[Rfam]
RNA: Selenocysteine insertion sequence 3
RNA sequence: GUUUGACACAGCCCCACGGUUGCCGGUCUGGCAGCAACAUUCGGUCGCGGUUCGAUGAC
Numbered sequence: 001g002u003u004u005g006a007c008a009c010a011g012c013c014c015c016a017c018g019g020u021u022g023c024c025g026g027u028c029u030g031g032c033a034g035c036a037a038c039a040u041u042c043g044g045u046c047g048c049g050g051u052u053c054g055a056u057g058a059c
Base pairs, nucleotide, nucleotide: 007049009047011045012044013043016041018035021033022032023031024030025029